[Rfam]
RNA sequence: GCCGGGAUAGCUCAGCAGGUAGAGCAGCUGAUUUGUAAUCAGCGGGUCGCGGGUUCAAUUCCUGUUCCCGGCU
Numbered sequence: 001g002c003c004g005g006g007a008u009a010g011c012u013c014a015g016c017a018g019g020u021a022g023a024g025c026a027g028c029u030g031a032u033u034u035g036u037a038a039u040c041a042g043c044g045g046g047u048c049g050c051g052g053g054u055u056c057a058a059u060u061c062c063u064g065u066u067c068c069c070g071g072c073u
Stems, first nucleotide, its partner, number of pairs: 001072007010025004027043005049065005
Rfam assigns this 73-nucleotide RNA from Candidatus Termititenax aidoneus to the family "tRNA". Taxonomically the source falls in Candidatus Termititenax (Bacteria, Bacillati, Candidatus Termititenacia, Candidatus Termititenacales). By type it is a transfer RNA. It scores 68 bits against the family's covariance model.